[Rfam]
RNA sequence: GGUUUCAACAUCCCCGUAGGUCGGGCGCAGCCAUGAGCGGCGCAGUGGACCUACUGGAGCC
Numbered sequence: 001g002g003u004u005u006c007a008a009c010a011u012c013c014c015c016g017u018a019g020g021u022c023g024g025g026c027g028c029a030g031c032c033a034u035g036a037g038c039g040g041c042g043c044a045g046u047g048g049a050c051c052u053a054c055u056g057g058a059g060c061c
Stems, first nucleotide, its partner, number of pairs: 001061007013047001014045001016054007023046001025043004030038002